Rfam assigns this 346-nucleotide RNA sequence from Lysobacter sp. HDW10 to the family "Bacterial RNase P class A".
Ribonuclease P (RNase P) is a ubiquitous endoribonuclease, found in archaea, bacteria and eukarya as well as chloroplasts and mitochondria.
Nucleotides: 346
Base pairs, nucleotide, nucleotide: 001342002341003340004339005338006337007336008335009334010333011331012311013310014309015308016307017306018305020035021034022033023032024031025030040329041328042327044326045325046324047323048322049216050215051214052213056248057247058246059245061212062211063210064209065208066080067079068078069077070076081095082093083092084091085090096207097206101205102204103201104200117148118147119144120143121142126139127138128137129136130135156174157173158172159171160170161169175196176194177193179192180191181190182189183188220268221267222266223265230259231258232257233256234255235254239253240252241251242250243249275294276293277292278291279290280289281288282287
Number, partner (000 for none) and nucleotide at each position: 001342g002341g003340a004339g005338u006337c007336g008335g009334c010333c011331a012311g013310g014309c015308a016307a017306u018305c019000g020035c021034g022033g023032c024031g025030u026000g027000c028000a029000a030025a031024c032023g033022u034021c035020g036000a037000g038000g039000a040329a041328a042327g043000u044326c045325c046324g047323g048322g049216c050215u051214c052213c053000a054000c055000a056248g057247g058246g059245c060000g061212c062211g063210a064209u065208g066080c067079c068078a069077g070076g071000u072000a073000a074000c075000g076070c077069c078068u079067g080066g081095g082093c083092g084091g085090u086000g087000a088000a089000a090085g091084c092083c093082g094000a095081c096207g097206g098000a099000a100000a101205g102204u103201g104200c105000a106000a107000c108000a109000g110000a111000a112000a113000g114000a115000u116000a117148c118147c119144g120143c121142c122000u123000a124000a125000g126139c127138c128137u129136g130135c131000u132000u133000c134000g135130g136129c137128a138127g139126g140000a141000c142121g143120g144119u145000a146000a147118g148117g149000g150000u151000g152000a153000a154000a155000u156174g157173g158172u159171g160170c161169g162000g163000u164000a165000a166000g167000a168000g169161c170160g171159c172158a173157c174156c175196g176194c177193g178000a179192g180191c181190c182189g183188g184000g185000c186000a187000a188183c189182c190181g191180g192179c193177c194176g195000g196175u197000a198000u199000g200104g201103c202000a203000a204102a205101c206097c207096c208065c209064a210063u211062c212061g213052g214051g215050a216049g217000c218000a219000a220268g221267a222266c223265c224000a225000a226000a227000u228000a229000g230259g231258g232257a233256g234255g235254c236000u237000a238000c239253g240252c241251u242250g243249c244000g245059g246058c247057c248056c249243g250242c251241a252240g253239u254235g255234u256233c257232u258231c259230c260000g261000g262000g263000u264000a265223g266222g267221u268220u269000g270000c271000u272000u273000g274000a275294g276293c277292c278291u279290u280289g281288c282287g283000g284000u285000g286000a287282c288281g289280c290279a291278a292277g293276g294275c295000c296000u297000a298000g299000a300000c301000g302000a303000a304000u305018g306017a307016u308015u309014g310013c311012c312000c313000a314000c315000g316000a317000c318000a319000g320000a321000a322048c323047c324046c325045g326044g327042c328041u329040u330000a331011u332000c333010g334009g335008c336007c337006g338005g339004c340003u341002c342001c343000g344000c345000a346000c
It is annotated as a ribozyme.